[Rfam]
RNA: Rhodo-rpoB RNA
Organism: Paracoccus homiensis
RNA sequence: GGUUCGGGAGUCGCGCGGUGGGACGGGCGACAGGAAUGGAACCUCACCCUGCAUUCGUAGUCCGCGUUCCGGGGGCCCCGACCUGGAAUGCG
Numbered sequence: 001g002g003u004u005c006g007g008g009a010g011u012c013g014c015g016c017g018g019u020g021g022g023a024c025g026g027g028c029g030a031c032a033g034g035a036a037u038g039g040a041a042c043c044u045c046a047c048c049c050u051g052c053a054u055u056c057g058u059a060g061u062c063c064g065c066g067u068u069c070c071g072g073g074g075g076c077c078c079c080g081a082c083c084u085g086g087a088a089u090g091c092g
Base pairs, nucleotide, nucleotide: 001043002042003041004040005039010031011030012029013028014027016025017024063092064091065090066089067088069086070085071084072083073082